[Rfam]
RNA sequence: UAGAUGUGAGUAUUACAUCAGGUACUGGUUAUAUUAAUUGAAUGCCAGUGCUUGUGUUAUACUUGCAUUUA
Numbered sequence: 001u002a003g004a005u006g007u008g009a010g011u012a013u014u015a016c017a018u019c020a021g022g023u024a025c026u027g028g029u030u031a032u033a034u035u036a037a038u039u040g041a042a043u044g045c046c047a048g049u050g051c052u053u054g055u056g057u058u059a060u061a062c063u064u065g066c067a068u069u070u071a
Stems, first nucleotide, its partner, number of pairs: 001071006009063004015057004021052009
Dot-bracket structure: ((((((..((((..((((..(((((((((..............))))))))).))))..))))..))))))
Shown here is a 71-nucleotide sequence from Cotesia typhae, a member of the family "mir-12 microRNA precursor family". Taxonomically the source falls in Cotesia (Eukaryota, Protostomia, Neoptera, Microgastrinae). The literature on the family includes a 2010 paper in Science by Werren et al., "Functional and evolutionary insights from the genomes of three parasitoid Nasonia species".